Rfam assigns this 135-nucleotide RNA to the family "Small nucleolar RNA SNORA49". Rfam describes the family as follows. The snoRNA ACA49 has no identified RNA target. NB genomic sequence 1-nt different from published. The base pairs follow the family's consensus structure, which was predicted with RNAalifold.

RNA sequence: CUUCCUCAGCCUUACUCCAGGGACUUUUGUUGCCUGUAAAGUGCUCUGGCAUUGCCUGAGGAUAGAUGAGAAAGCACAUAUCCCUCCCCAGUAAGACGCUGUUUUCUUUUGGGGCCUACAAGUUGAGCUGACAGU
Numbered sequence: 001c002u003u004c005c006u007c008a009g010c011c012u013u014a015c016u017c018c019a020g021g022g023a024c025u026u027u028u029g030u031u032g033c034c035u036g037u038a039a040a041g042u043g044c045u046c047u048g049g050c051a052u053u054g055c056c057u058g059a060g061g062a063u064a065g066a067u068g069a070g071a072a073a074g075c076a077c078a079u080a081u082c083c084c085u086c087c088c089c090a091g092u093a094a095g096a097c098g099c100u101g102u103u104u105u106c107u108u109u110u111g112g113g114g115c116c117u118a119c120a121a122g123u124u125g126a127g128c129u130g131a132c133a134g135u
Stems, first nucleotide, its partner, number of pairs: 003062007011054001017049006023042005073129003077125002086114006093108004